[Rfam]
Description: Rfam assigns this 70-nucleotide RNA to the family "mir-101 microRNA precursor family". Gene Ontology terms of the family: RISC complex and miRNA-mediated post-transcriptional gene silencing. Pairs were carried over by alignment from the consensus structure, which was predicted with RNAalifold. The sequence is in the family's curated seed alignment.

RNA sequence: UGGCUCAGUUAUCACAGUGCUGAUGCUGUCUCUUGUAAAGGUACAGUACUGUGAUAACUGAAGGAUGGCA
Numbered sequence: 001u002g003g004c005u006c007a008g009u010u011a012u013c014a015c016a017g018u019g020c021u022g023a024u025g026c027u028g029u030c031u032c033u034u035g036u037a038a039a040g041g042u043a044c045a046g047u048a049c050u051g052u053g054a055u056a057a058c059u060g061a062a063g064g065a066u067g068g069c070a
Base pairs, nucleotide, nucleotide: 006060007059008058009057010056011055012054013053014052015051016050017049018048019047020046022044024043025042026041027040